Rfam assigns this 79-nucleotide RNA from Burkholderia sp. WAC0059 to the family "Burkholderia sRNA 16 (Bc_KC_sr1)".
[Rfam]
RNA sequence: GUACGCGGUGGUUAUGCUGCCGCGUCACCAUUCUCCUCUUGUCGUUGUUGCUCCGGGGCUCCUGCCCCGGUUUUUUUUG
Numbered sequence: 001g002u003a004c005g006c007g008g009u010g011g012u013u014a015u016g017c018u019g020c021c022g023c024g025u026c027a028c029c030a031u032u033c034u035c036c037u038c039u040u041g042u043c044g045u046u047g048u049u050g051c052u053c054c055g056g057g058g059c060u061c062c063u064g065c066c067c068c069g070g071u072u073u074u075u076u077u078u079g
Stems, first nucleotide, its partner, number of pairs: 001028002003025005009019004053070007
From the family's description: Identified by RNA-seq, RACE and Northern blot. Strongly expressed in biofilm. Also know as Bc_KC_sr1.
The literature on the family includes a 2017 paper in Microbiology by Ghosh et al., "Identification of novel small RNAs in Burkholderia cenocepacia KC-01 expressed under iron limitation and oxidative stress conditions".
Pairs were carried over by alignment from the consensus structure, which was predicted with RNAfold.